[Rfam]
RNA sequence: AAUUAGUUUCGGUAGGUGAGGCUACUGAAGGGAUACGGAUUACUGCCGCAAAAUGGUGGAGACACCAUGCGUUGGCCAACAGUCUUUAUCGAAACAAGGUUUAGAAUAGUGUAAUAACAUCGCCCUUCAAAGCUAAAGCUCAAACGUAACAAGUCAUCA
Numbered sequence: 001a002a003u004u005a006g007u008u009u010c011g012g013u014a015g016g017u018g019a020g021g022c023u024a025c026u027g028a029a030g031g032g033a034u035a036c037g038g039a040u041u042a043c044u045g046c047c048g049c050a051a052a053a054u055g056g057u058g059g060a061g062a063c064a065c066c067a068u069g070c071g072u073u074g075g076c077c078a079a080c081a082g083u084c085u086u087u088a089u090c091g092a093a094a095c096a097a098g099g100u101u102u103a104g105a106a107u108a109g110u111g112u113a114a115u116a117a118c119a120u121c122g123c124c125c126u127u128c129a130a131a132g133c134u135a136a137a138g139c140u141c142a143a144a145c146g147u148a149a150c151a152a153g154u155c156a157u158c159a
Stems, first nucleotide, its partner, number of pairs: 006154004011145001013097001015140003020134003026129007039115005045076004055066004083105003088100003
M-box riboswitch aptamer (ykoK leader): a 159-nucleotide RNA sequence from Streptococcus henryi. A reference for the family is Barrick et al. (2004), "New RNA motifs suggest an expanded scope for riboswitches in bacterial genetic control", Proc Natl Acad Sci U S A. It scores 103 bits against the family's covariance model. M-box riboswitch, also know as ykoK leader is described as a metaloregulatory RNA that sense divalent metals and function as a genetic control element of genes related to divalent metal transport in bacteria. It was first reported upstream of the B.subtilis ykoK gene and genes with related functions in other bacteria. The source organism's lineage runs through Bacteria, Bacillati, Lactobacillales, Streptococcaceae and Streptococcus.